[Rfam]
RNA: FMN riboswitch aptamer (RFN element)
RNA sequence: GUUCGUCUUCAGGGGCAGGGUGAAAUUCCCGACCGGUGGUUAUAGUCCACGACCCAUCUCAUUGAGGUGGCUGAUUCAGUGAAAUUCUGAUACCGACAGUAAAGUCUGGAUAAAGAAGAUAGGG
Numbered sequence: 001g002u003u004c005g006u007c008u009u010c011a012g013g014g015g016c017a018g019g020g021u022g023a024a025a026u027u028c029c030c031g032a033c034c035g036g037u038g039g040u041u042a043u044a045g046u047c048c049a050c051g052a053c054c055c056a057u058c059u060c061a062u063u064g065a066g067g068u069g070g071c072u073g074a075u076u077c078a079g080u081g082a083a084a085u086u087c088u089g090a091u092a093c094c095g096a097c098a099g100u101a102a103a104g105u106c107u108g109g110a111u112a113a114a115g116a117a118g119a120u121a122g123g124g
Stems, first nucleotide, its partner, number of pairs: 003122001005120006018030003032105002034095002036050004045093002054070002076090004097108003